[Rfam]
RNA sequence: UCCUUAUCGAGAGAGGCAGAGGGACUGGCCCUAUGACGCCCGGCAACCGCUAUUUUUUAUAGUAUGGUGCCAAUUCCAGCAGAACAUAUUGUUCUGAAAGAUAAGGA
Numbered sequence: 001u002c003c004u005u006a007u008c009g010a011g012a013g014a015g016g017c018a019g020a021g022g023g024a025c026u027g028g029c030c031c032u033a034u035g036a037c038g039c040c041c042g043g044c045a046a047c048c049g050c051u052a053u054u055u056u057u058u059a060u061a062g063u064a065u066g067g068u069g070c071c072a073a074u075u076c077c078a079g080c081a082g083a084a085c086a087u088a089u090u091g092u093u094c095u096g097a098a099a100g101a102u103a104a105g106g107a
Base pairs, nucleotide, nucleotide: 001107002106003105004104005103006102007101008100013041015040016039017038021031022030023029025079026078027077028076042071043070044069045068047067048066049063050062051061052060075099080096081095082094083093084092085091